Glycine riboswitch aptamer: a 104-nucleotide sequence from Staphylococcus sp. HMSC071G07. A search with the family's covariance model found it, with a score of 65 bits.
[Rfam]
RNA sequence: UUGAUCAGUGUUAGAGAGAAUGAUUGUAUUCUUUGUUGAAUAUAAUCAUCGCCGAAGGUGCAAGUAAAUACGAAUCUCUCAGGCAAAAGGAUGACACUGUGACG
Numbered sequence: 001u002u003g004a005u006c007a008g009u010g011u012u013a014g015a016g017a018g019a020a021u022g023a024u025u026g027u028a029u030u031c032u033u034u035g036u037u038g039a040a041u042a043u044a045a046u047c048a049u050c051g052c053c054g055a056a057g058g059u060g061c062a063a064g065u066a067a068a069u070a071c072g073a074a075u076c077u078c079u080c081a082g083g084c085a086a087a088a089g090g091a092u093g094a095c096a097c098u099g100u101g102a103c104g
Stems, first nucleotide, its partner, number of pairs: 006099008020049010051084003054080002058078001060076001064071002